The record is a 204-nucleotide RNA sequence from Orycteropus afer, which matches "Small nucleolar RNA SNORA74" in Rfam. The family's RNA type in Rfam is H/ACA-box small nucleolar RNA. It scores 114 bits against the family's covariance model. The base pairs follow the family's consensus structure, which was predicted with PFOLD.
RNA sequence: UCCAGCGGUAGUCAGCUGUCUGGGCAUACCCAUUCCUUUGAUGGUGUUACACUGCUGGGAGAGCAAUGUCUUGUCUUCUUCAUCUGGUUGCCUUUGUCACUGUUCUGGUGGCAUUUGGCACUGGUACAAGGCAGAACUGUGCUUCCUUGAGAGUAUGCUAAGCAUUCACCUUCACUGCUUAGUUCUAGUCUGGGAGCAGACACA
Number, nucleotide and partner (000 for none) at each position: 001u059002c058003c057004a056005g055006c054007g053008g052009u051010a000011g050012u049013c000014a000015g045016c044017u043018g042019u041020c040021u000022g037023g036024g035025c000026a000027u000028a000029c000030c000031c000032a000033u000034u000035c024036c023037u022038u000039u000040g020041a019042u018043g017044g016045u015046g000047u000048u000049a012050c011051a009052c008053u007054g006055c005056u004057g003058g002059g001060a000061g000062a000063g000064c000065a000066a000067u000068g137069u136070c000071u134072u133073g132074u131075c130076u129077u000078c000079u000080u000081c000082a000083u000084c000085u126086g125087g000088u123089u120090g119091c118092c117093u000094u000095u113096g112097u111098c110099a109100c108101u107102g000103u000104u000105c000106u000107g101108g100109u099110g098111g097112c096113a095114u000115u000116u000117g092118g091119c090120a089121c000122u000123g088124g000125u086126a085127c000128a000129a076130g075131g074132c073133a072134g071135a000136a069137c068138u000139g000140u198141g197142c196143u195144u194145c193146c192147u000148u000149g000150a000151g000152a000153g000154u000155a000156u000157g183158c000159u181160a180161a179162g178163c177164a176165u000166u000167c000168a000169c000170c000171u000172u000173c000174a000175c000176u164177g163178c162179u161180u160181a159182g000183u157184u000185c000186u000187a000188g000189u000190c000191u000192g146193g145194g144195a143196g142197c141198a140199g000200a000201c000202a000203c000204a000
For this family Rfam cites "The family of box ACA small nucleolar RNAs is defined by an evolutionarily conserved secondary structure and ubiquitous sequence elements essential for RNA accumulation" (Ganot et al., Genes Dev, 1997).